[Rfam]
RNA: Bacterial RNase P class B
RNA sequence: GCGUACGGCCAACUGCUAUGCAAAUAGAGGAAAAUCCGCUCUAUCACUUUCUGCGAUGAAAGUAGUGAUUAUGCUAGAUCUAAUAAAUCUAGACAAUGAAAGUUGAUGACUAGUGCAACAGAGACGAGCUUAUUAAGUUAAGAUGCAACGAUGUAAACUCCAUAAGAUAGAAACCCAAAUUUUGGUAGGGGAAUCAAAAUAAAAGGAACUUGAACUUUUAUUUGAAAGUAGAAAUACUUAGAUAAAUAGUUGGCGCUUGUAAAAGUACAGAAAGCGGUUUAUAGUA
Numbered sequence: 001g002c003g004u005a006c007g008g009c010c011a012a013c014u015g016c017u018a019u020g021c022a023a024a025u026a027g028a029g030g031a032a033a034a035u036c037c038g039c040u041c042u043a044u045c046a047c048u049u050u051c052u053g054c055g056a057u058g059a060a061a062g063u064a065g066u067g068a069u070u071a072u073g074c075u076a077g078a079u080c081u082a083a084u085a086a087a088u089c090u091a092g093a094c095a096a097u098g099a100a101a102g103u104u105g106a107u108g109a110c111u112a113g114u115g116c117a118a119c120a121g122a123g124a125c126g127a128g129c130u131u132a133u134u135a136a137g138u139u140a141a142g143a144u145g146c147a148a149c150g151a152u153g154u155a156a157a158c159u160c161c162a163u164a165a166g167a168u169a170g171a172a173a174c175c176c177a178a179a180u181u182u183u184g185g186u187a188g189g190g191g192a193a194u195c196a197a198a199a200u201a202a203a204a205g206g207a208a209c210u211u212g213a214a215c216u217u218u219u220a221u222u223u224g225a226a227a228g229u230a231g232a233a234a235u236a237c238u239u240a241g242a243u244a245a246a247u248a249g250u251u252g253g254c255g256c257u258u259g260u261a262a263a264a265g266u267a268c269a270g271a272a273a274g275c276g277g278u279u280u281a282u283a284g285u286a
Stems, first nucleotide, its partner, number of pairs: 004286003007282001008254007016027004032280003036277005041170005046063006069165005074092006093107001094105004108160002113158002115154003129142004174190003194225002197223005226239005256265003